[Rfam]
RNA: Saccharopolyspora sRNA 350
RNA sequence: CGGUAGGUGUGCGGCCACACCGGGUCGGGCCGGUGCAGCGCCCCGUCGCCCAGAUGCGUUCCGCCGACGAACACGCCGAGGCUCUGGGCGUCGCCGUACUCGCCCGUCCCCAGUUGCUCGAUCCGGCCGUGCGCGACGAUGAGCACCUCGGCCACCGGGGACCCGGCCGCGGCGAUGGUGUCGCCGGGCCGGAAGUCGCGGGGCGCGAACCGCCCGGCCAGCGCGGCGAGCGGUGCCGGGUCGGCGAAGCCCCGCAGCAGCGGGAGUUCGGUGAGGGUGCCGGGGAUGAUCCGCACGUCGUCGGCGCCCGUCUGGACGAACUCGACCCGGCCCCGCCCGGCGGUCAGCGUGAGCCGCCGGUUCACCCGGUAGGUCCCGCCGGGGACGUCGACCCACGGCAGCUUGCGCAGCAGCCACCGCGGGGUGACGCCCUGCAUCUGCGGCACGGUCUUGGCGGUGGUGGCCAGUUGCUGCGCCGCCCGCGUGCCAAGGCUCAGCCGGCCCUGGUCGUCCGGU
Numbered sequence: 001c002g003g004u005a006g007g008u009g010u011g012c013g014g015c016c017a018c019a020c021c022g023g024g025u026c027g028g029g030c031c032g033g034u035g036c037a038g039c040g041c042c043c044c045g046u047c048g049c050c051c052a053g054a055u056g057c058g059u060u061c062c063g064c065c066g067a068c069g070a071a072c073a074c075g076c077c078g079a080g081g082c083u084c085u086g087g088g089c090g091u092c093g094c095c096g097u098a099c100u101c102g103c104c105c106g107u108c109c110c111c112a113g114u115u116g117c118u119c120g121a122u123c124c125g126g127c128c129g130u131g132c133g134c135g136a137c138g139a140u141g142a143g144c145a146c147c148u149c150g151g152c153c154a155c156c157g158g159g160g161a162c163c164c165g166g167c168c169g170c171g172g173c174g175a176u177g178g179u180g181u182c183g184c185c186g187g188g189c190c191g192g193a194a195g196u197c198g199c200g201g202g203g204c205g206c207g208a209a210c211c212g213c214c215c216g217g218c219c220a221g222c223g224c225g226g227c228g229a230g231c232g233g234u235g236c237c238g239g240g241u242c243g244g245c246g247a248a249g250c251c252c253c254g255c256a257g258c259a260g261c262g263g264g265a266g267u268u269c270g271g272u273g274a275g276g277g278u279g280c281c282g283g284g285g286a287u288g289a290u291c292c293g294c295a296c297g298u299c300g301u302c303g304g305c306g307c308c309c310g311u312c313u314g315g316a317c318g319a320a321c322u323c324g325a326c327c328c329g330g331c332c333c334c335g336c337c338c339g340g341c342g343g344u345c346a347g348c349g350u351g352a353g354c355c356g357c358c359g360g361u362u363c364a365c366c367c368g369g370u371a372g373g374u375c376c377c378g379c380c381g382g383g384g385a386c387g388u389c390g391a392c393c394c395a396c397g398g399c400a401g402c403u404u405g406c407g408c409a410g411c412a413g414c415c416a417c418c419g420c421g422g423g424g425u426g427a428c429g430c431c432c433u434g435c436a437u438c439u440g441c442g443g444c445a446c447g448g449u450c451u452u453g454g455c456g457g458u459g460g461u462g463g464c465c466a467g468u469u470g471c472u473g474c475g476c477c478g479c480c481c482g483c484g485u486g487c488c489a490a491g492g493c494u495c496a497g498c499c500g501g502c503c504c505u506g507g508u509c510g511u512c513c514g515g516u
Stems, first nucleotide, its partner, number of pairs: 006393003011388002015384002018330001022328002025325005031318001039314001040311002045308001047306004052301001055230001057228002061226004066110001075103001077102004084096001087095002118221001120219001122217002126213002129210002131206004138199001143196002149192001155188002158185002162177001166173002232299004237293006250285005256278001258276001261270002332343002354382003358378003364374003394434002397431003402426001404424001406421003410418001440479004446473004451467005480515002483510002487507003491503004